[Rfam]
RNA sequence: GGAAGUUUGAGGAGAGCUGCUCCUAGUACGAGAGGACCGGAGUGGACGAACCACUGGUGUUCGGGUUGUGUCGCCAGACGCAUUGCCCGGUAGCUAAGUUCGGACGGGAUAACCGCUGAAAGCAUCUAAGCGGGAAGCCCCCUUCAAGAUGAGACUUCCCUUGGCCCUAGAGGUCACAUAAGAGACGUUGAAGACUACGACGUUGAUAGGCUGGGUGUGUAAGCGUUGUGAGGCGUUGAGCUAACCAGUACUAAUGACUCGAGAG
Numbered sequence: 001g002g003a004a005g006u007u008u009g010a011g012g013a014g015a016g017c018u019g020c021u022c023c024u025a026g027u028a029c030g031a032g033a034g035g036a037c038c039g040g041a042g043u044g045g046a047c048g049a050a051c052c053a054c055u056g057g058u059g060u061u062c063g064g065g066u067u068g069u070g071u072c073g074c075c076a077g078a079c080g081c082a083u084u085g086c087c088c089g090g091u092a093g094c095u096a097a098g099u100u101c102g103g104a105c106g107g108g109a110u111a112a113c114c115g116c117u118g119a120a121a122g123c124a125u126c127u128a129a130g131c132g133g134g135a136a137g138c139c140c141c142c143u144u145c146a147a148g149a150u151g152a153g154a155c156u157u158c159c160c161u162u163g164g165c166c167c168u169a170g171a172g173g174u175c176a177c178a179u180a181a182g183a184g185a186c187g188u189u190g191a192a193g194a195c196u197a198c199g200a201c202g203u204u205g206a207u208a209g210g211c212u213g214g215g216u217g218u219g220u221a222a223g224c225g226u227u228g229u230g231a232g233g234c235g236u237u238g239a240g241c242u243a244a245c246c247a248g249u250a251c252u253a254a255u256g257a258c259u260c261g262a263g264a265g
Stems, first nucleotide, its partner, number of pairs: 001159008011145004017045007047102005055096003062089005067082006106140003113133005162176005179262001182260003186202005207253003210249005217241001223236005